[Rfam]
Rfam assigns this 81-nucleotide sequence from Cohnella luojiensis to the family "ZMP/ZTP riboswitch aptamer (pfl RNA motif)".
The family's consensus secondary structure is taken from published work.
Rfam 15.1 lists 3,295 matches to the family in 2,545 species.

Nucleotides: 081
Base pairs, nucleotide, nucleotide: 003053005051006050007049008048009047010046011045012044015041016040017069018068019067020066025037026036027035028034058076060074061073062072
Number, partner (000 for none) and nucleotide at each position: 001000a002000a003053g004000a005051c006050u007049a008048u009047g010046u011045g012044u013000g014000a015041c016040u017069g018068g019067c020066g021000g022000a023000a024000c025037a026036u027035g028034g029000g030000c031000u032000u033000a034028c035027c036026a037025u038000g039000a040016g041015g042000g043000a044012g045011c046010a047009c048008a049007u050006a051005g052000a053003u054000a055000c056000a057000u058076u059000a060074g061073c062072c063000g064000u065000a066020c067019g068018c069017c070000u071000g072062g073061g074060c075000a076058g077000a078000g079000g080000u081000a